[Rfam]
RNA sequence: GGGCCUAUAGCUCAGUUGGCUAGAGCUACCGGCUCAUAACCGGUCGGUCCCAGGUUCGAGUCCUGGUGGGCCCA
Number, nucleotide and partner (000 for none) at each position: 001g073002g072003g071004c070005c069006u068007a067008u000009a000010g026011c025012u024013c023014a000015g000016u000017u000018g000019g000020c000021u000022a000023g013024a012025g011026c010027u000028a044029c043030c042031g041032g040033c000034u000035c000036a000037u000038a000039a000040c032041c031042g030043g029044u028045c000046g000047g000048u000049c000050c066051c065052a064053g063054g062055u000056u000057c000058g000059a000060g000061u000062c054063c053064u052065g051066g050067u007068g006069g005070g004071c003072c002073c001074a000
RNA: tRNA
Organism: Geotalea uraniireducens